The record is a 55-nucleotide sequence from Rhodococcoides fascians, which matches "msiK RNA" in Rfam. Taxonomically the source falls in Rhodococcoides (Bacteria, Bacillati, Actinomycetota, Mycobacteriales).

[Rfam]
RNA sequence: UACAUGAAUCUCACUCGGAUCGUCCGGCACGUUCCUGCCGGUGAAGGGACCACCA
Dot-bracket structure: ........(.(((..........((((((......))))))))).).........
Numbered sequence: 001u002a003c004a005u006g007a008a009u010c011u012c013a014c015u016c017g018g019a020u021c022g023u024c025c026g027g028c029a030c031g032u033u034c035c036u037g038c039c040g041g042u043g044a045a046g047g048g049a050c051c052a053c054c055a
Stems, first nucleotide, its partner, number of pairs: 009046001011044003024041006